[Rfam]
RNA sequence: GGCUGGUCCGAGUGCAGUGGUGUUUACAAUUAAUUGAUCACAACCAGUUACAGAUUCCUUUGUUCCUUCUCCAUGCCCGCUGCUUCUGCUUCACGUGAAUAGCCCUAA
Numbered sequence: 001g002g003c004u005g006g007u008c009c010g011a012g013u014g015c016a017g018u019g020g021u022g023u024u025u026a027c028a029a030u031u032a033a034u035u036g037a038u039c040a041c042a043a044c045c046a047g048u049u050a051c052a053g054a055u056u057c058c059u060u061u062g063u064u065c066c067u068u069c070u071c072c073a074u075g076c077c078c079g080c081u082g083c084u085u086c087u088g089c090u091u092c093a094c095g096u097g098a099a100u101a102g103c104c105c106u107a108a
Base pairs, nucleotide, nucleotide: 001104002103003102004101005100007098008097010091011090014086016081017080018079019078020077022076028064029063030062032060033059
The record is a 108-nucleotide sequence from Microcebus murinus, which matches "Y RNA" in Rfam.
The literature on the family includes a 2013 paper in Physiol Genomics by Dhahbi et al., "5'-YRNA fragments derived by processing of transcripts from specific YRNA genes and pseudogenes are abundant in human serum and plasma".
It scores 43 bits against the family's covariance model.
The family's RNA type in Rfam is non-coding RNA gene.
Pairs were carried over by alignment from the consensus structure, which is taken from published work.
NCBI's taxonomy places the organism under Eukaryota, Eumetazoa, Vertebrata, Boreoeutheria, Microcebus.